[Rfam]
RNA sequence: GAACCUCAAAACAACGAAAGCCCUACCUCUCUUCCGUCCUUACGGCUCCGAUGACCGCGCCAGUGUGAAUCGGGUAAAUCAAAACGCU
Numbered sequence: 001g002a003a004c005c006u007c008a009a010a011a012c013a014a015c016g017a018a019a020g021c022c023c024u025a026c027c028u029c030u031c032u033u034c035c036g037u038c039c040u041u042a043c044g045g046c047u048c049c050g051a052u053g054a055c056c057g058c059g060c061c062a063g064u065g066u067g068a069a070u071c072g073g074g075u076a077a078a079u080c081a082a083a084a085c086g087c088u
Stems, first nucleotide, its partner, number of pairs: 035067002039063002041059001043057003047053001

The record is an 88-nucleotide RNA from Brevibacillus laterosporus, which matches "BsrC" in Rfam. The match comes from Rfam's covariance-model search (76 bits). Pairs were carried over by alignment from the consensus structure, which was predicted with CMfinder. Rfam's curators write: The 301 nucleotide sequence from Kouji Nakamura has been trimmed to a highly conserved ~85 nucleotide long core to form this family.